[Rfam]
RNA: TPP riboswitch aptamer (THI element)
Organism: Oceanivirga miroungae
RNA sequence: AUAAGGAAACAGGGGUGCUUUUAAGCUGAGAUGAUACCCUUUGACCUGAUACAGUUAGUACUGUCGUAGGGAGUUUUAUAUAUUUUUUA
Numbered sequence: 001a002u003a004a005g006g007a008a009a010c011a012g013g014g015g016u017g018c019u020u021u022u023a024a025g026c027u028g029a030g031a032u033g034a035u036a037c038c039c040u041u042u043g044a045c046c047u048g049a050u051a052c053a054g055u056u057a058g059u060a061c062u063g064u065c066g067u068a069g070g071g072a073g074u075u076u077u078a079u080a081u082a083u084u085u086u087u088u089a
Stems, first nucleotide, its partner, number of pairs: 006077005011040004016034001017026003045070004051064004